[Rfam]
RNA sequence: UGAAGUGAUUGUAGGGCGCAAUCACGUUAAUCAAAAAAAAGCCCGACUGGU
Numbered sequence: 001u002g003a004a005g006u007g008a009u010u011g012u013a014g015g016g017c018g019c020a021a022u023c024a025c026g027u028u029a030a031u032c033a034a035a036a037a038a039a040a041g042c043c044c045g046a047c048u049g050g051u
Stems, first nucleotide, its partner, number of pairs: 006024006014044004
RNA: 6A RNA